[Rfam]
RNA sequence: GGACCGUGACGAUUGACAUAGGUCUCGUUCGUCGUAAUAUAUGCCGUAAAAGGCUUAUUUGCCGACCACUCUGUUAUACUGAGUCC
Dot-bracket structure: ((((...........................................(((.......)))......................))))
Description: The record is an 86-nucleotide RNA sequence from Arabis alpina, which matches "Small nucleolar RNA Z43" in Rfam. A reference for the family is Chen et al. (2003), "The high diversity of snoRNAs in plants: identification and comparative study of 120 snoRNA genes from Oryza sativa", Nucleic Acids Res. The family has 7 seed sequences and 859 matches in Rfam 15.1. Taxonomically the source falls in Arabis (Eukaryota, Magnoliopsida, malvids, Brassicales). Rfam links the family to the GO terms nucleolus and RNA processing.